[Rfam]
RNA sequence: GAAGACGCUAAAAUUGUUAUCAUCCUAUUCUCUAAGAAAUUUUAUUUUGGCCACUUCAAAGUGGCCAUCU
Numbered sequence: 001g002a003a004g005a006c007g008c009u010a011a012a013a014u015u016g017u018u019a020u021c022a023u024c025c026u027a028u029u030c031u032c033u034a035a036g037a038a039a040u041u042u043u044a045u046u047u048u049g050g051c052c053a054c055u056u057c058a059a060a061g062u063g064g065c066c067a068u069c070u
Stems, first nucleotide, its partner, number of pairs: 024036001026034002049066007
Record summary: MicA sRNA: a 70-nucleotide RNA from Arsenophonus endosymbiont of Bemisia tabaci. The literature on the family includes a 2001 paper in Curr Biol by Argaman et al., "Novel small RNA-encoding genes in the intergenic regions of Escherichia coli". The source organism's lineage runs through Bacteria, Enterobacterales, Morganellaceae, Arsenophonus and Arsenophonus endosymbiont of Bemisia tabaci. It scores 47 bits against the family's covariance model. It is annotated as a small RNA. The family's consensus secondary structure was predicted with WAR.